[Rfam]
RNA: Flavo-1 RNA
Organism: Algibacter luteus
RNA sequence: UUUGAACUGCGUUAGGGAUUGCAAUGGUUAGCUUUUGGCGAGGCGCGCAUCAAGCCAAAACUAGUAAUGGAAAGCCCGACCCAUG
Numbered sequence: 001u002u003u004g005a006a007c008u009g010c011g012u013u014a015g016g017g018a019u020u021g022c023a024a025u026g027g028u029u030a031g032c033u034u035u036u037g038g039c040g041a042g043g044c045g046c047g048c049a050u051c052a053a054g055c056c057a058a059a060a061c062u063a064g065u066a067a068u069g070g071a072a073a074g075c076c077c078g079a080c081c082c083a084u085g
Stems, first nucleotide, its partner, number of pairs: 015077003019073002024068002029063003035058005